The record is a 127-nucleotide RNA from Clostridiales bacterium oral taxon 876, which matches "FMN riboswitch aptamer (RFN element)" in Rfam. The family's consensus secondary structure is taken from published work. Rfam's curators write: The RFN element is a highly conserved domain that is found frequently in the 5'-untranslated regions of prokaryotic mRNAs that encode for flavin mononucleotide (FMN) biosynthesis and transport proteins.
[Rfam]
RNA sequence: GAUAAUCUUCAGGGCAGGGUGACUAAGAAAUUAGGAUUCCCGACCGGCGGUAAAGCCCGCGAGCCGUAAUGGCAGAUUCGGUGUAACUCCGAAGCCGACAGUACAGUCUGGAUGGAAGAAGAUGACU
Numbered sequence: 001g002a003u004a005a006u007c008u009u010c011a012g013g014g015c016a017g018g019g020u021g022a023c024u025a026a027g028a029a030a031u032u033a034g035g036a037u038u039c040c041c042g043a044c045c046g047g048c049g050g051u052a053a054a055g056c057c058c059g060c061g062a063g064c065c066g067u068a069a070u071g072g073c074a075g076a077u078u079c080g081g082u083g084u085a086a087c088u089c090c091g092a093a094g095c096c097g098a099c100a101g102u103a104c105a106g107u108c109u110g111g112a113u114g115g116a117a118g119a120a121g122a123u124g125a126c127u
Base pairs, nucleotide, nucleotide: 003125005123006122007121008120009119010118017041018040019039043107044106045097046096047060048059049058050057055095056094063073064072065071077093078092079091080090081089099110100109101108